[Rfam]
RNA: Small nucleolar RNA SNORA5
RNA sequence: UGCAGUCAAGUCAAAUUCAGCCCCUGUUCCCGUGGUAGCGGGGGCUGGCCCAGAUGACUGCUACAGCAAGCUCCGCAGCUCAUGGGCCCCGGGUCCUCUGCCCUGGGGCCUGGGGAUAAGUUUGGCUGCAGACAUGG
Numbered sequence: 001u002g003c004a005g006u007c008a009a010g011u012c013a014a015a016u017u018c019a020g021c022c023c024c025u026g027u028u029c030c031c032g033u034g035g036u037a038g039c040g041g042g043g044g045c046u047g048g049c050c051c052a053g054a055u056g057a058c059u060g061c062u063a064c065a066g067c068a069a070g071c072u073c074c075g076c077a078g079c080u081c082a083u084g085g086g087c088c089c090c091g092g093g094u095c096c097u098c099u100g101c102c103c104u105g106g107g108g109c110c111u112g113g114g115g116a117u118a119a120g121u122u123u124g125g126c127u128g129c130a131g132a133c134a135u136g137g
Base pairs, nucleotide, nucleotide: 002061003060004059005058018047019046020045021044022043023042024041025040026039027038028037075129076128077127078126079125080124087115088114089113091111092110